[Rfam]
RNA sequence: CUGGAAUGAUGCAACUUAGCCAAAUCAGACAUGGAUGUGCUCCGUAAGGUUGUUUCAAGUAGCUUGUGCCAGCAUCCGUUAGAUGCAGUGGUGCAAGUCACGGUUCACAAUCCUUAGUUGAAGCGCAUCUCUCUGAUGAUAAAACAGAGAAUGGUUUCUAGCUGACCAGA
Numbered sequence: 001c002u003g004g005a006a007u008g009a010u011g012c013a014a015c016u017u018a019g020c021c022a023a024a025u026c027a028g029a030c031a032u033g034g035a036u037g038u039g040c041u042c043c044g045u046a047a048g049g050u051u052g053u054u055u056c057a058a059g060u061a062g063c064u065u066g067u068g069c070c071a072g073c074a075u076c077c078g079u080u081a082g083a084u085g086c087a088g089u090g091g092u093g094c095a096a097g098u099c100a101c102g103g104u105u106c107a108c109a110a111u112c113c114u115u116a117g118u119u120g121a122a123g124c125g126c127a128u129c130u131c132u133c134u135g136a137u138g139a140u141a142a143a144a145c146a147g148a149g150a151a152u153g154g155u156u157u158c159u160a161g162c163u164g165a166c167c168a169g170a
Base pairs, nucleotide, nucleotide: 001169002168003167004166
Dot-bracket structure: ((((.................................................................................................................................................................)))).
The record is a 170-nucleotide RNA from Centaurea solstitialis, which matches "small nucleolar RNA snoR127" in Rfam. A reference for the family is Chen and Wu (2009), "Mining small RNA sequencing data: a new approach to identify small nucleolar RNAs in Arabidopsis", Nucleic Acids Res. It scores 70 bits against the family's covariance model. Rfam classes the family as a C/D-box small nucleolar RNA. Gene Ontology terms of the family: nucleolus and RNA processing.